[Rfam]
RNA sequence: CACAAGAGUGCGUGUAAGGACUCUGUCCGAGGCGGAUGAUUCUGGUGUACUUCCCCGAUACCAGAAACCUGCCUCGGACAGGGCCCUAUACGCACUCGCAUGCUUU
Numbered sequence: 001c002a003c004a005a006g007a008g009u010g011c012g013u014g015u016a017a018g019g020a021c022u023c024u025g026u027c028c029g030a031g032g033c034g035g036a037u038g039a040u041u042c043u044g045g046u047g048u049a050c051u052u053c054c055c056c057g058a059u060a061c062c063a064g065a066a067a068c069c070u071g072c073c074u075c076g077g078a079c080a081g082g083g084c085c086c087u088a089u090a091c092g093c094a095c096u097c098g099c100a101u102g103c104u105u106u
Stems, first nucleotide, its partner, number of pairs: 010093007018086002021083014038068001040066009
The family of this 106-nucleotide sequence from Corynebacterium sp. KPL1821 is "mraW RNA". The family's RNA type in Rfam is cis-regulatory element. Lineage of the source: Bacteria > Actinomycetota > Actinomycetes > Corynebacteriaceae > Corynebacterium.